Record summary: The record is a 104-nucleotide sequence from Butyricicoccus pullicaecorum, which matches "THF (Tetrahydrofolate) riboswitch aptamer" in Rfam. For this family Rfam cites "A eubacterial riboswitch class that senses the coenzyme tetrahydrofolate" (Ames et al., Chem Biol, 2010). The organism belongs to Butyricicoccus pullicaecorum, within Bacteria. It scores 89 bits against the family's covariance model. The family has 101 seed sequences and 747 matches in Rfam 15.1.

RNA sequence: AGCAGAGUAGACUGCUGCGCGUGAAGUGCCGCCGGAACGGGGAGUUGUCCGACGGACGAAAGGAAAGAUUCCUUCCUGCGGUGCAGCUGUCGCAUCCCGCUGCA
Dot-bracket structure: .((((....(((.(((((((((...((.(((.((((...[[[.[...)))).)))))...((((.........))))))).)))))).))).].]]]..)))).